[Rfam]
RNA: mir-33 microRNA precursor family
RNA sequence: CUGUAGUGCAUUGUAGUUGCAUUGCAUGUGCUGGCAGUAACUGUGCAAUGUUCCUGCAGUGCAGUACAG
Number, nucleotide and partner (000 for none) at each position: 001c069002u068003g067004u066005a000006g065007u063008g062009c061010a060011u059012u058013g057014u056015a055016g054017u000018u000019g051020c000021a049022u048023u047024g046025c045026a044027u043028g000029u000030g000031c000032u000033g000034g000035c000036a000037g000038u000039a000040a000041c000042u000043g027044u026045g025046c024047a023048a022049u021050g000051u019052u000053c000054c016055u015056g014057c013058a012059g011060u010061g009062c008063a007064g000065u006066a004067c003068a002069g001